[Rfam]
RNA sequence: CUCUGUAGUCUUCCACAGCUUUCUUGAACUGCAACCAUGCCUUGCAUGUCUUCUCUUAAUUUGCAGUUCAAUAAAGCUGUGGGAAAUUUCAGGGA
Numbered sequence: 001c002u003c004u005g006u007a008g009u010c011u012u013c014c015a016c017a018g019c020u021u022u023c024u025u026g027a028a029c030u031g032c033a034a035c036c037a038u039g040c041c042u043u044g045c046a047u048g049u050c051u052u053c054u055c056u057u058a059a060u061u062u063g064c065a066g067u068u069c070a071a072u073a074a075a076g077c078u079g080u081g082g083g084a085a086a087u088u089u090c091a092g093g094g095a
Base pairs, nucleotide, nucleotide: 003092004091005090007088013082014081015080017078018077019076020075021074022073024071025070026069027068029066030065031064032063033062

The record is a 95-nucleotide RNA from Dioscorea zingiberensis, which matches "MIR396 microRNA precursor family" in Rfam. The family has 26 seed sequences and 744 matches in Rfam 15.1. A reference for the family is Jones-Rhoades and Bartel (2004), "Computational identification of plant microRNAs and their targets, including a stress-induced miRNA", Mol Cell. Gene Ontology terms of the family: miRNA-mediated post-transcriptional gene silencing and RISC complex.